Clostridiales-2 RNA: an 83-nucleotide sequence from Alkaliphilus metalliredigens. It is one of the family's seed sequences. The family's RNA type in Rfam is small RNA. The base pairs follow the family's consensus structure, which is taken from published work.
RNA sequence: AAAAAAGAGGGGUUGUAGGGGAUGGAAUCCCCUGCCCGUCUUCAGGAAGGUGCUCAGACAGCUUGGCUGUCGUCGAAGGAAAC
Numbered sequence: 001a002a003a004a005a006a007g008a009g010g011g012g013u014u015g016u017a018g019g020g021g022a023u024g025g026a027a028u029c030c031c032c033u034g035c036c037c038g039u040c041u042u043c044a045g046g047a048a049g050g051u052g053c054u055c056a057g058a059c060a061g062c063u064u065g066g067c068u069g070u071c072g073u074c075g076a077a078g079g080a081a082a083c
Stems, first nucleotide, its partner, number of pairs: 015035008057071005